[Rfam]
RNA sequence: ACUGGAAGACAAUGAUGUGAGAAUUCCAAGCACAUAUCUGAAAUGAAUGUGUUGACGCAUUUUGCACUGAGUCUUUUCUGC
Numbered sequence: 001a002c003u004g005g006a007a008g009a010c011a012a013u014g015a016u017g018u019g020a021g022a023a024u025u026c027c028a029a030g031c032a033c034a035u036a037u038c039u040g041a042a043a044u045g046a047a048u049g050u051g052u053u054g055a056c057g058c059a060u061u062u063u064g065c066a067c068u069g070a071g072u073c074u075u076u077u078c079u080g081c
Stems, first nucleotide, its partner, number of pairs: 002080001004078003007074004